[Rfam]
RNA sequence: ACGGACGCCUGGCAAGGCCAAGACAGCACCGGAAGAGAAGGUACUGCCUCCCAACCCAAGCGCCCCAGCACGGUUCCCGGCACCCACGCGGAGCACGCCGCGAUAAUGGCAGAAGUGUUGCGGGCCUGCGUAAUUGCGAAAAGCGGUCGGACAUAACGUCCCCUUGGGUGGGGAUGUCAACGAAGCGCAGCGCACAAGCGCCGAGGCCAACCCACGCAGCCCACCUGGCACGCUUGGUAACCGGAGCACCGUGCUAGCGGGCGGCGAGCCGAAGAAAUUCGGAACGCCGCCCGCUUUCGCUG
Numbered sequence: 001a002c003g004g005a006c007g008c009c010u011g012g013c014a015a016g017g018c019c020a021a022g023a024c025a026g027c028a029c030c031g032g033a034a035g036a037g038a039a040g041g042u043a044c045u046g047c048c049u050c051c052c053a054a055c056c057c058a059a060g061c062g063c064c065c066c067a068g069c070a071c072g073g074u075u076c077c078c079g080g081c082a083c084c085c086a087c088g089c090g091g092a093g094c095a096c097g098c099c100g101c102g103a104u105a106a107u108g109g110c111a112g113a114a115g116u117g118u119u120g121c122g123g124g125c126c127u128g129c130g131u132a133a134u135u136g137c138g139a140a141a142a143g144c145g146g147u148c149g150g151a152c153a154u155a156a157c158g159u160c161c162c163c164u165u166g167g168g169u170g171g172g173g174a175u176g177u178c179a180a181c182g183a184a185g186c187g188c189a190g191c192g193c194a195c196a197a198g199c200g201c202c203g204a205g206g207c208c209a210a211c212c213c214a215c216g217c218a219g220c221c222c223a224c225c226u227g228g229c230a231c232g233c234u235u236g237g238u239a240a241c242c243g244g245a246g247c248a249c250c251g252u253g254c255u256a257g258c259g260g261g262c263g264g265c266g267a268g269c270c271g272a273a274g275a276a277a278u279u280c281g282g283a284a285c286g287c288c289g290c291c292c293g294c295u296u297u298c299g300c301u302g
Stems, first nucleotide, its partner, number of pairs: 003065002006062003010058003016052002021049002025045002028042003067255008077244004084237003088233003093229002097110003117220006123208005128201004135194004143188003147183003157176007257294010269282003
Dot-bracket structure: ..((.(((.(((...((...((..((.(((.........))).))..)).))...))).))).)).((((((((..((((...(((.(((..((..(((........)))......(((((((((((((((...((((....(((.(((.......(((((((......)))))))....)))..)))..))))...))))..)))))......)))))).......)).))).)))...))))...)))))))).((((((((((..(((........)))..))))))))))........
Annotation
This 302-nucleotide RNA sequence from Mycobacterium sp. shizuoka-1 belongs to the Rfam family "Mycobacterium smegmatis small RNA 1". Rfam describes the family as follows. Mycobacterium smegmatis small RNA 1 is highly expressed during stationary phase of growth. Ms1 RNA directly interacts with RNA polymerase (RNAP), but in a different way than 6S, which is present in other bacteria. Ms1 does not require the presence of the main sigma factor for RNAP interaction.